Rfam assigns this 132-nucleotide RNA from Glycine max to the family "mir-393 microRNA precursor family".
RNA sequence: GGUGGAUAGUUCCAAAGGGAUCGCAUUGAUCUAAUUCUUUAUCUUCCUGCAUGUAUUUACUUGCAGCUCUGGUUUUGGACCUUUUUACCGGUUCACUGACUUGGAUCAUGCGAUCCCUUAGGAAUUUUCCAU
Numbered sequence: 001g002g003u004g005g006a007u008a009g010u011u012c013c014a015a016a017g018g019g020a021u022c023g024c025a026u027u028g029a030u031c032u033a034a035u036u037c038u039u040u041a042u043c044u045u046c047c048u049g050c051a052u053g054u055a056u057u058u059a060c061u062u063g064c065a066g067c068u069c070u071g072g073u074u075u076u077g078g079a080c081c082u083u084u085u086u087a088c089c090g091g092u093u094c095a096c097u098g099a100c101u102u103g104g105a106u107c108a109u110g111c112g113a114u115c116c117c118u119u120a121g122g123a124a125u126u127u128u129c130c131a132u
Stems, first nucleotide, its partner, number of pairs: 002132005008126006015119007023111004028107007

About this RNA:
The organism belongs to Glycine subgen. Soja, within Eukaryota. For this family Rfam cites "Role of microRNAs and other sRNAs of plants in their changing environments" (Kruszka et al., J Plant Physiol, 2012).